[Rfam]
RNA sequence: CGAGACAGCCGCUGUCCCUGUCCUCCAGGAGCUCACGUGUCCAACUGUGAGCUCCCCGAGGGCAGAGCCCGUGUCUGCCUCCUUGCAGCG
Numbered sequence: 001c002g003a004g005a006c007a008g009c010c011g012c013u014g015u016c017c018c019u020g021u022c023c024u025c026c027a028g029g030a031g032c033u034c035a036c037g038u039g040u041c042c043a044a045c046u047g048u049g050a051g052c053u054c055c056c057c058g059a060g061g062g063c064a065g066a067g068c069c070c071g072u073g074u075c076u077g078c079c080u081c082c083u084u085g086c087a088g089c090g
Base pairs, nucleotide, nucleotide: 006077007076008075010073011072012071016067018065019064020063022061024059025058028055029054031052032051033050034049035048036047037042
RNA: mir-339 microRNA precursor family